[Rfam]
RNA sequence: ACGACCUUACUUGAACAGGAUCUGUUCUAUAGGCUCGUACUUCUGUGUCCUUUAGCACAAAGGAGACAGGAUCUCAAGUCUGGUUGAUGAAUCAUGACCUUGUGAUCAGAGCGUGAUUAACAGCUUCCUGUUCCAUGUUGAUCAGCUGGAGUAGUAGAGGAUCGUUCUCGGUAUGGUGUUAAACUAGCUGGGAUGGUCACAAGGUUGUCUGACAGACU
Numbered sequence: 001a002c003g004a005c006c007u008u009a010c011u012u013g014a015a016c017a018g019g020a021u022c023u024g025u026u027c028u029a030u031a032g033g034c035u036c037g038u039a040c041u042u043c044u045g046u047g048u049c050c051u052u053u054a055g056c057a058c059a060a061a062g063g064a065g066a067c068a069g070g071a072u073c074u075c076a077a078g079u080c081u082g083g084u085u086g087a088u089g090a091a092u093c094a095u096g097a098c099c100u101u102g103u104g105a106u107c108a109g110a111g112c113g114u115g116a117u118u119a120a121c122a123g124c125u126u127c128c129u130g131u132u133c134c135a136u137g138u139u140g141a142u143c144a145g146c147u148g149g150a151g152u153a154g155u156a157g158a159g160g161a162u163c164g165u166u167c168u169c170g171g172u173a174u175g176g177u178g179u180u181a182a183a184c185u186a187g188c189u190g191g192g193a194u195g196g197u198c199a200c201a202a203g204g205u206u207g208u209c210u211g212a213c214a215g216a217c218u
Base pairs, nucleotide, nucleotide: 001038002037003035005033006032007031013027014026015025016024017023018022043069044068045067046066048064049063050062051061052060053059078217079216080215081214082213097205098204099203100202101201102200103199104198105197106196107195108194110166111165112164113163120155121154123152124151125150126149127148128145129144130143132141133140168191169190170189171188172187174186175185176184177183
Rfam assigns this 218-nucleotide RNA from Durio zibethinus to the family "Plant small nucleolar RNA U3". From the family's description: Small nucleolar RNAs (snoRNAs) are involved in the processing and modification of rRNA in the nucleolus. There are two main classes of snoRNAs: the box C/D class, and the box H/ACA class. U3 snoRNA is a member of the box C/D class. Indeed, the box C/D element is a subset of the six short sequence elements found in all U3 snoRNAs, namely boxes A, A', B, C, C', and D. The U3 snoRNA secondary structure is characterised by a small 5' domain (with boxes A and A'), and a larger 3' domain (with boxes B, C, C', and D), the two domains being linked by a single-stranded hinge. It scores 195 bits against the family's covariance model.